The family of this 96-nucleotide RNA sequence is "skipping-rope RNA". By type it is a small RNA.
[Rfam]
RNA sequence: GUUGUUUGAGGUGGAAAAAUUCGUCCGAUCCACACGCCGCUGGUAUGACAGGGGAAACCCGAGAGAUGCAGGAGAAACGGACGCCUGCCAAAUAAC
Numbered sequence: 001g002u003u004g005u006u007u008g009a010g011g012u013g014g015a016a017a018a019a020u021u022c023g024u025c026c027g028a029u030c031c032a033c034a035c036g037c038c039g040c041u042g043g044u045a046u047g048a049c050a051g052g053g054g055a056a057a058c059c060c061g062a063g064a065g066a067u068g069c070a071g072g073a074g075a076a077a078c079g080g081a082c083g084c085c086u087g088c089c090a091a092a093u094a095a096c
Stems, first nucleotide, its partner, number of pairs: 001096008011033005023082001024080002035063001037054002068088005